[Rfam]
RNA sequence: GCUUUUUCCCCCCUUUCCUGCGGGCGUAGGCUACAGAGAAGCUCGCAGGUGCUGGGGGGGGAAGAGC
Numbered sequence: 001g002c003u004u005u006u007u008c009c010c011c012c013c014u015u016u017c018c019u020g021c022g023g024g025c026g027u028a029g030g031c032u033a034c035a036g037a038g039a040a041g042c043u044c045g046c047a048g049g050u051g052c053u054g055g056g057g058g059g060g061g062a063a064g065a066g067c
Stems, first nucleotide, its partner, number of pairs: 001067004008061004013056003019047002023043003026034002

Source information
This 67-nucleotide RNA from Nyctibius grandis belongs to the Rfam family "MAT2A 3'UTR stem loop A". The match comes from Rfam's covariance-model search (53 bits). The family's consensus secondary structure is taken from published work. It is annotated as a cis-regulatory element.